Source information: The record is a 74-nucleotide RNA from Dinothrombium tinctorium, which matches "HDV ribozyme from F. prausnitzii" in Rfam. A reference for the family is Webb et al. (2009), "Widespread occurrence of self-cleaving ribozymes", Science. The organism belongs to Dinothrombium, within Eukaryota.
[Rfam]
RNA sequence: GCUCCUCGUUAGGGUCACCUCCACGUGGUGAGGAGCGGAAACGGCCAAAUUUAUCGGCCGGCUAAGAACCCUAC
Numbered sequence: 001g002c003u004c005c006u007c008g009u010u011a012g013g014g015u016c017a018c019c020u021c022c023a024c025g026u027g028g029u030g031a032g033g034a035g036c037g038g039a040a041a042c043g044g045c046c047a048a049a050u051u052u053a054u055c056g057g058c059c060g061g062c063u064a065a066g067a068a069c070c071c072u073a074c
Base pairs, nucleotide, nucleotide: 001036002035003034004033005032006031007030017029018028019027042060043059044058045057046056